[Rfam]
RNA: Bacterial large subunit ribosomal RNA, nucleotides 853 to 1289
Organism: Nitratidesulfovibrio vulgaris
RNA sequence: CUCCCCGAAAUAUAUUGAGGUAUAGCCUCGGGAAAUUGUCUUGCGGAGGUAGAGCACUGACAGGGCUAGGGGUCUCACCAGAUUACCAAACCCUUUCAAACUCCGAAUGCCGCUAAGAUGUACCCCGGGAGUCAGACGGCGGGUGCGAAGGUCCGUCGUCAAAAGGGAAACAGCCCAGAUCGACAGCUAAGGUCUCCAAAUCCAUGCUCAGUGGUCAAGGUGGUGGAGUUGUUCAGACAGCCAGGACGUUGGCUUAGAAGCAGCCAUCGUUUAAAGAAAGCGUAAUAGCUCACUGGUCUAAUGACUCUGCGCCGAAAAUGUAACGGGGCUAAGCAUGGUACCGAAGCUUCGGGAUCGCUCAGGCGAUCGGUAGGGGAGCGUUCCCUGCGGGCAGAAGGUGUGCUGGAAGGCAUGCUGGACUGCAGGGAAGUGAUUAU
Numbered sequence: 001c002u003c004c005c006c007g008a009a010a011u012a013u014a015u016u017g018a019g020g021u022a023u024a025g026c027c028u029c030g031g032g033a034a035a036u037u038g039u040c041u042u043g044c045g046g047a048g049g050u051a052g053a054g055c056a057c058u059g060a061c062a063g064g065g066c067u068a069g070g071g072g073u074c075u076c077a078c079c080a081g082a083u084u085a086c087c088a089a090a091c092c093c094u095u096u097c098a099a100a101c102u103c104c105g106a107a108u109g110c111c112g113c114u115a116a117g118a119u120g121u122a123c124c125c126c127g128g129g130a131g132u133c134a135g136a137c138g139g140c141g142g143g144u145g146c147g148a149a150g151g152u153c154c155g156u157c158g159u160c161a162a163a164a165g166g167g168a169a170a171c172a173g174c175c176c177a178g179a180u181c182g183a184c185a186g187c188u189a190a191g192g193u194c195u196c197c198a199a200a201u202c203c204a205u206g207c208u209c210a211g212u213g214g215u216c217a218a219g220g221u222g223g224u225g226g227a228g229u230u231g232u233u234c235a236g237a238c239a240g241c242c243a244g245g246a247c248g249u250u251g252g253c254u255u256a257g258a259a260g261c262a263g264c265c266a267u268c269g270u271u272u273a274a275a276g277a278a279a280g281c282g283u284a285a286u287a288g289c290u291c292a293c294u295g296g297u298c299u300a301a302u303g304a305c306u307c308u309g310c311g312c313c314g315a316a317a318a319u320g321u322a323a324c325g326g327g328g329c330u331a332a333g334c335a336u337g338g339u340a341c342c343g344a345a346g347c348u349u350c351g352g353g354a355u356c357g358c359u360c361a362g363g364c365g366a367u368c369g370g371u372a373g374g375g376g377a378g379c380g381u382u383c384c385c386u387g388c389g390g391g392c393a394g395a396a397g398g399u400g401u402g403c404u405g406g407a408a409g410g411c412a413u414g415c416u417g418g419a420c421u422g423c424a425g426g427g428a429a430g431u432g433a434u435u436a437u
Base pairs, nucleotide, nucleotide: 001378002377003376004375005374006373011024012023013022014021015020026131027129028128029127030126031125032124037122038119039118040117041116042115043113044112045111046110052104053102054101058098059097060096062094063093064092065091069087070086071084072083073082074081075080135160136159137158138157139156140155141154142153143152144151165176166175167174180352181351182350183349185348186347187346191342192341193340200339202338203337204336205335206334207333219313220312221311223310224309225308226307227306228305229304230303231302232301240297241296242295243294244293246270247269248268251265252264253263271275276291280289281288353368354367355366356365357364358363379432381429382428383427384426385425386424387423388422389421390420397416398415399414400413401412402411403410404409